[Rfam]
RNA: SAM riboswitch aptamer (S box leader)
Organism: Herpetosiphon aurantiacus
RNA sequence: AACUCAUCCAGAGGGGUGGAGGGAUCGGCCCUAUGAAACCCCGGCAACCGCAGGCAGCAAUGCUUGGACUGGUGCUAAGUCCGACAGAAUCAUUCUGGAAGAUGAGGG
Numbered sequence: 001a002a003c004u005c006a007u008c009c010a011g012a013g014g015g016g017u018g019g020a021g022g023g024a025u026c027g028g029c030c031c032u033a034u035g036a037a038a039c040c041c042c043g044g045c046a047a048c049c050g051c052a053g054g055c056a057g058c059a060a061u062g063c064u065u066g067g068a069c070u071g072g073u074g075c076u077a078a079g080u081c082c083g084a085c086a087g088a089a090u091c092a093u094u095c096u097g098g099a100a101g102a103u104g105a106g107g108g
Stems, first nucleotide, its partner, number of pairs: 003106006013042005021031003025084004043076004048072002051067001053065001080100001085097004
Dot-bracket structure: ..((((((....(((((...(((.[[[[)))......)))))((((.((.(.(...........).)...))))))...(]]]]((((.....))))..)))))))..